[Rfam]
RNA sequence: CAGGCAUGCUGGAGUCCCGCCAGCGGCGCCUCGGUCGGUUGCCAACACGACCGGACACCCGACGGGAUUUGU
Numbered sequence: 001c002a003g004g005c006a007u008g009c010u011g012g013a014g015u016c017c018c019g020c021c022a023g024c025g026g027c028g029c030c031u032c033g034g035u036c037g038g039u040u041g042c043c044a045a046c047a048c049g050a051c052c053g054g055a056c057a058c059c060c061g062a063c064g065g066g067a068u069u070u071g072u
Stems, first nucleotide, its partner, number of pairs: 012070008025059002031054004036049001
Background
The record is a 72-nucleotide RNA from Oricola thermophila, which matches "ybhL leader" in Rfam. Lineage of the source: Bacteria > Pseudomonadota > Alphaproteobacteria > Hyphomicrobiales > Oricola. The base pairs follow the family's consensus structure. This family is a putative regulatory RNA structure that is found upstream of an uncharacterized membrane protein in alpha-proteobacteria. Gene Ontology term of the family: regulation of gene expression.